[Rfam]
Shown here is a 61-nucleotide sequence, a member of the family "chrB-b RNA".
RNA sequence: UGGGGAUUGUAAGCAGACUCCCCGGAUUCCCAAGACGCUCGACUUAGCGUCCAAGUUCUGC
Number, nucleotide and partner (000 for none) at each position: 001u024002g023003g022004g021005g020006a019007u000008u000009g000010u000011a000012a000013g061014c060015a059016g058017a057018c000019u006020c005021c004022c003023c002024g001025g000026a000027u000028u000029c000030c000031c000032a000033a000034g051035a050036c049037g048038c047039u000040c000041g000042a000043c000044u000045u000046a000047g038048c037049g036050u035051c034052c000053a000054a000055g000056u000057u017058c016059u015060g014061c013
By type it is a cis-regulatory element. The base pairs follow the family's consensus structure, which is taken from published work. Rfam's curators put it in the seed alignment.